[Rfam]
RNA sequence: AUAUUUGAUGGGAAUGAGGUUCUCCCAGGGAAUUAAUCCUAAACUGCCAAUGUGCUGAUGACUUCUGCUUUUAC
Numbered sequence: 001a002u003a004u005u006u007g008a009u010g011g012g013a014a015u016g017a018g019g020u021u022c023u024c025c026c027a028g029g030g031a032a033u034u035a036a037u038c039c040u041a042a043a044c045u046g047c048c049a050a051u052g053u054g055c056u057g058a059u060g061a062c063u064u065c066u067g068c069u070u071u072u073a074c
Stems, first nucleotide, its partner, number of pairs: 010026004016065006046055002
RNA: Fluoride riboswitch aptamer (crcB RNA motif)
Organism: Peptacetobacter hominis